[Rfam]
RNA sequence: CCCCGAGUGGUUCUUUUCGAGGACUGUCCGACCUGAGAAUGUUGGUUUCAGGCUCAAUCUCAGGCCCGUCAGCCCAUGAAAAGCCGACUCGCC
Numbered sequence: 001c002c003c004c005g006a007g008u009g010g011u012u013c014u015u016u017u018c019g020a021g022g023a024c025u026g027u028c029c030g031a032c033c034u035g036a037g038a039a040u041g042u043u044g045g046u047u048u049c050a051g052g053c054u055c056a057a058u059c060u061c062a063g064g065c066c067c068g069u070c071a072g073c074c075c076a077u078g079a080a081a082a083g084c085c086g087a088c089u090c091g092c093c
Base pairs, nucleotide, nucleotide: 005090006089007088008086009085010084011083012082015081016080017079018078021075022074024072025071026070028068030066032064033063034062035061036060037059038058040056041055
mir-1388 microRNA precursor family: a 93-nucleotide sequence from Cyclopterus lumpus. Pairs were carried over by alignment from the consensus structure, which was predicted with RNAalifold. Its family is annotated with miRNA-mediated post-transcriptional gene silencing and RISC complex in the Gene Ontology. The literature on the family includes a 2009 paper in BMC Genomics by Soares et al., "Parallel DNA pyrosequencing unveils new zebrafish microRNAs".